Description:
A member of the RNA family "Group II catalytic intron D1-D4-3" from Rummeliibacillus sp. TYF005, 173 nucleotides long.
RNA sequence: UCCGUGGUGACGCGGAAUCUGAAGGAAGUGAGCGGCAAACCUCCGGUCUGAGGAACACGAACCUCAUAUAAGGCUAGAUAUGAUUGGAUAAGUGUGCCAAACAACAUAAAGUCCUUUCUGUCAAAGGUUAUAUCUAGUAAAUGAGGCAGAUAGAUGGAGCGAAAGAGUACGUU
Number, nucleotide and partner (000 for none) at each position: 001u016002c015003c014004g013005u012006g011007g000008u000009g000010a000011c006012g005013c004014g003015g002016a001017a000018u000019c000020u000021g000022a000023a000024g000025g000026a000027a000028g173029u000030g000031a000032g000033c000034g000035g000036c165037a000038a000039a000040c000041c159042u158043c157044c156045g155046g151047u150048c149049u148050g147051a000052g000053g000054a000055a000056c000057a000058c000059g000060a000061a000062c146063c145064u144065c143066a142067u141068a000069u000070a000071a000072g000073g138074c137075u136076a000077g134078a133079u132080a131081u130082g129083a128084u000085u000086g114087g113088a112089u111090a000091a000092g107093u106094g105095u104096g000097c000098c000099a000100a000101a000102c000103a000104a095105c094106a093107u092108a000109a000110a000111g089112u088113c087114c086115u000116u000117u000118c000119u000120g000121u000122c000123a000124a000125a000126g000127g000128u083129u082130a081131u080132a079133u078134c077135u000136a075137g074138u073139a000140a000141a067142u066143g065144a064145g063146g062147c050148a049149g048150a047151u046152a000153g000154a000155u045156g044157g043158a042159g041160c000161g000162a000163a000164a000165g036166a000167g000168u000169a000170c000171g000172u000173u028